[Rfam]
RNA sequence: UACCUAACUUAUUAGCCAUGAAAAUGGCAUUGGCUGGUGAUUAUUUAAUCACCGGCCU
Numbered sequence: 001u002a003c004c005u006a007a008c009u010u011a012u013u014a015g016c017c018a019u020g021a022a023a024a025u026g027g028c029a030u031u032g033g034c035u036g037g038u039g040a041u042u043a044u045u046u047a048a049u050c051a052c053c054g055g056c057c058u
Stems, first nucleotide, its partner, number of pairs: 015028004032057010
The family of this 58-nucleotide sequence from Psychromonas sp. B3M02 is "Pseudomonas sRNA P26". The family's consensus secondary structure was predicted with RNAalifold. Taxonomically the source falls in Psychromonas (Bacteria, Pseudomonadati, Gammaproteobacteria, Alteromonadales). From the family's description: This small RNA (sRNA) was computationally identified in the genome of the opportunistic pathogen Pseudomonas aeruginosa and its expression verified by northern blot analysis. P26 is conserved across many Gammaproteobacteria species and appears to be consistently located between the DNA directed RNA polymerase (beta subunit) and 50S ribosomal protein L7/L12 genes. The match comes from Rfam's covariance-model search (45 bits). It is annotated as a non-coding RNA gene.